[Rfam]
RNA sequence: CUGCACGUAGCCUCCCGGGCUCGUCUGAUCAAUUUUUACAUGAAGUUAGAAGCCCCAAAGCUCGUGCUAUAUCUACCGCCGCUAGUGUUGCAGUUUAGCCCUUUUGUACCUUCUUUACCUUUGGCUUUAUCUGUGUCAAAAUCAACGGCUACAUUU
Number, nucleotide and partner (000 for none) at each position: 001c000002u000003g067004c066005a065006c064007g063008u000009a000010g061011c060012c000013u000014c000015c000016c000017g055018g054019g053020c052021u051022c049023g000024u000025c045026u044027g000028a000029u000030c000031a000032a000033u000034u000035u000036u000037u000038a000039c000040a000041u000042g000043a000044a026045g025046u000047u000048a000049g022050a000051a021052g020053c019054c018055c017056c000057a000058a000059a000060g011061c010062u000063c007064g006065u005066g004067c003068u000069a000070u000071a000072u000073c000074u000075a000076c000077c000078g149079c148080c147081g146082c000083u144084a000085g000086u138087g137088u000089u135090g134091c133092a132093g131094u000095u000096u000097a126098g125099c124100c000101c000102u000103u000104u000105u000106g000107u000108a000109c000110c000111u000112u000113c000114u000115u000116u000117a000118c000119c000120u000121u000122u000123g000124g099125c098126u097127u000128u000129a000130u000131c093132u092133g091134u090135g089136u000137c087138a086139a000140a000141a000142u000143c000144a083145a000146c081147g080148g079149c078150u000151a000152c000153a000154u000155u000156u000
small nucleolar RNA snoR134: a 156-nucleotide RNA sequence from Nicotiana attenuata. Lineage of the source: Eukaryota > Tracheophyta > Spermatophyta > Solanales > Nicotiana. The match comes from Rfam's covariance-model search (96 bits).